[Rfam]
The family of this 97-nucleotide sequence from Guyparkeria sp. XI15 is "Bacterial small signal recognition particle RNA". From the family's description: The signal recognition particle (SRP) is a universally conserved ribonucleoprotein involved in the co-translational targeting of proteins to membranes. A search with the family's covariance model found it, with a score of 65 bits. The family's consensus secondary structure is taken from published work. Lineage of the source: Bacteria > Pseudomonadati > Pseudomonadota > Chromatiales > Guyparkeria.

RNA sequence: UGUUCGUCCCUUCGCGACGGAUCUCCGUGAAUUCCGCCAGGCCCGGAAGGGAGCAACGGUAGCGGUCGAUCCGGGCGCCGGAGACCGGCGGAUGCAG
Numbered sequence: 001u002g003u004u005c006g007u008c009c010c011u012u013c014g015c016g017a018c019g020g021a022u023c024u025c026c027g028u029g030a031a032u033u034c035c036g037c038c039a040g041g042c043c044c045g046g047a048a049g050g051g052a053g054c055a056a057c058g059g060u061a062g063c064g065g066u067c068g069a070u071c072c073g074g075g076c077g078c079c080g081g082a083g084a085c086c087g088g089c090g091g092a093u094g095c096a097g
Base pairs, nucleotide, nucleotide: 004091005090006089007088008087010083011082012081013080014079015075018073019072020071021070022069025065026064027063028062034059035058036057042051043050044049